[Rfam]
RNA sequence: AGACCCCCGGCGGGAGAGCGCUCGUGAUCGCCCGGCGAAUCACGGGACGCCGAAGGAGCAACACUCCCCGCGAAACUCUCAGGCCCCAUGACCGUCUGGGCGAG
Numbered sequence: 001a002g003a004c005c006c007c008c009g010g011c012g013g014g015a016g017a018g019c020g021c022u023c024g025u026g027a028u029c030g031c032c033c034g035g036c037g038a039a040u041c042a043c044g045g046g047a048c049g050c051c052g053a054a055g056g057a058g059c060a061a062c063a064c065u066c067c068c069c070g071c072g073a074a075a076c077u078c079u080c081a082g083g084c085c086c087c088a089u090g091a092c093c094g095u096c097u098g099g100g101c102g103a104g
Base pairs, nucleotide, nucleotide: 006099007098009096010095011094012093013092021046022045023044024043025042026041027040028039049084050083051082052080053079056078057077058076
The record is a 104-nucleotide RNA from Saccharopolyspora montiporae, which matches "Glycine riboswitch aptamer" in Rfam.
Taxonomically the source falls in Saccharopolyspora (Bacteria, Bacillati, Actinomycetota, Actinomycetes).